A member of the RNA family "mir-574 microRNA precursor family" from Cnephaeus nilssonii, 81 nucleotides long. A search with the family's covariance model found it, with a score of 95 bits. Lineage of the source: Eukaryota > Metazoa > Chordata > Euteleostomi > Cnephaeus.
RNA sequence: GAGCCCAAAGAGAGAGGCAGGGUCUGAUCUGCAGCCUCCGUGACAGCUGUUGAUCAGCUGUUGCCUCUCUCUUACUCUCUA
Numbered sequence: 001g002a003g004c005c006c007a008a009a010g011a012g013a014g015a016g017g018c019a020g021g022g023u024c025u026g027a028u029c030u031g032c033a034g035c036c037u038c039c040g041u042g043a044c045a046g047c048u049g050u051u052g053a054u055c056a057g058c059u060g061u062u063g064c065c066u067c068u069c070u071c072u073u074a075c076u077c078u079c080u081a
Stems, first nucleotide, its partner, number of pairs: 008073013022059001024057006032049004